[Rfam]
RNA sequence: AGAGCGGGGAUUGUGUGUAUCGGUGUUGUGCUACAAUCAAUGCACUCUUCCGAAAGAGUUCCCUGCAAUAUUGUCUUGAGAAAGUGGGCAGUUGUGUUUUCAUCUUUUGUUGAAAUCACAACAAUCAUUUUCCCUACAUCU
Numbered sequence: 001a002g003a004g005c006g007g008g009g010a011u012u013g014u015g016u017g018u019a020u021c022g023g024u025g026u027u028g029u030g031c032u033a034c035a036a037u038c039a040a041u042g043c044a045c046u047c048u049u050c051c052g053a054a055a056g057a058g059u060u061c062c063c064u065g066c067a068a069u070a071u072u073g074u075c076u077u078g079a080g081a082a083a084g085u086g087g088g089c090a091g092u093u094g095u096g097u098u099u100u101c102a103u104c105u106u107u108u109g110u111u112g113a114a115a116u117c118a119c120a121a122c123a124a125u126c127a128u129u130u131u132c133c134c135u136a137c138a139u140c141u
Base pairs, nucleotide, nucleotide: 004066005065006064007063008062009061010060015045016044017043018042019041020040078135080133082131083130084129085127086126087125091122092121093120094119
RNA: small nucleolar RNA snoR135